[Rfam]
RNA sequence: GGCUUAUUUUGCGCAGGCGGAACCCGACCGCCCGUUCAAGCCAUGACCAACUUCAUUGAUGUUCAUUGCGCGGCAAACGCAGUCGAGCCUGUCUGCACGGUGUUGCAGAUUGCCCU
Numbered sequence: 001g002g003c004u005u006a007u008u009u010u011g012c013g014c015a016g017g018c019g020g021a022a023c024c025c026g027a028c029c030g031c032c033c034g035u036u037c038a039a040g041c042c043a044u045g046a047c048c049a050a051c052u053u054c055a056u057u058g059a060u061g062u063u064c065a066u067u068g069c070g071c072g073g074c075a076a077a078c079g080c081a082g083u084c085g086a087g088c089c090u091g092u093c094u095g096c097a098c099g100g101u102g103u104u105g106c107a108g109a110u111u112g113c114c115c116u
Stems, first nucleotide, its partner, number of pairs: 016032005079116001082113001089112001092109006